[Rfam]
The family of this 67-nucleotide sequence from Lentzea albidocapillata is "Transposase-2 RNA". The match comes from Rfam's covariance-model search (60 bits). By type it is a small RNA. The base pairs follow the family's consensus structure, which is taken from published work.

RNA sequence: GAAACGCCAACCCCGCACCAUCUCGGUGGGCAAGACGGGGACCGCCGACCGGUAACGGUCGGCUGUG
Dot-bracket structure: ..........(((((..((((....))))......)))))...((((((((....))))))))....